The family of this 182-nucleotide RNA from Duffyella gerundensis is "GlmZ RNA activator of glmS mRNA". Pairs were carried over by alignment from the consensus structure, which is taken from published work. For this family Rfam cites "Novel small RNA-encoding genes in the intergenic regions of Escherichia coli" (Argaman et al., Curr Biol, 2001). Rfam's curators write: This RNA was discovered in E. coli during a large scale screen. By type it is a small RNA.
RNA sequence: GUAGAUGCUCAUUCCAUUUGUUAUGUACGUUUAACGACAUAAUCCCGGGAAUGACGCAAAGCCAUUCUGGUAUCUGUUGUCCACAAGCCCGCGAUGGGCUUACCGGACAUUACGUUGAGUCUGAUACCGUCCAGUUGUUUUAUCGAUCUGAACUUUACACCUGCUUAUGCAGGUGUUUUUUU
Numbered sequence: 001g002u003a004g005a006u007g008c009u010c011a012u013u014c015c016a017u018u019u020g021u022u023a024u025g026u027a028c029g030u031u032u033a034a035c036g037a038c039a040u041a042a043u044c045c046c047g048g049g050a051a052u053g054a055c056g057c058a059a060a061g062c063c064a065u066u067c068u069g070g071u072a073u074c075u076g077u078u079g080u081c082c083a084c085a086a087g088c089c090c091g092c093g094a095u096g097g098g099c100u101u102a103c104c105g106g107a108c109a110u111u112a113c114g115u116u117g118a119g120u121c122u123g124a125u126a127c128c129g130u131c132c133a134g135u136u137g138u139u140u141u142a143u144c145g146a147u148c149u150g151a152a153c154u155u156u157a158c159a160c161c162u163g164c165u166u167a168u169g170c171a172g173g174u175g176u177u178u179u180u181u182u
Stems, first nucleotide, its partner, number of pairs: 001062002006058003009054004015049001017048001019041002022037001069128006079108004137147003157176008